[Rfam]
Overview
The record is a 72-nucleotide sequence from Salmo trutta, which matches "mir-24 microRNA precursor family" in Rfam.
RNA sequence: UACUCCAGUGCCUACUGAUCUGGAAUCAGUGUGUGUCUGUUGACUGCUGGCUCAGUUCAGCAGGAACAGGAG
Numbered sequence: 001u002a003c004u005c006c007a008g009u010g011c012c013u014a015c016u017g018a019u020c021u022g023g024a025a026u027c028a029g030u031g032u033g034u035g036u037c038u039g040u041u042g043a044c045u046g047c048u049g050g051c052u053c054a055g056u057u058c059a060g061c062a063g064g065a066a067c068a069g070g071a072g
Stems, first nucleotide, its partner, number of pairs: 003072004008067002011064003015060004020055004026050005

The family has 63 seed sequences and 1,372 matches in Rfam 15.1. Pairs were carried over by alignment from the consensus structure, which was predicted with RNAalifold. Gene Ontology terms of the family: miRNA-mediated post-transcriptional gene silencing and RISC complex. About the family: This family represents the microRNA (miRNA) mir-24 family. miRNAs are transcribed as ~70nt precursors (modelled here) and subsequently processed by the Dicer enzyme to give a ~22nt product.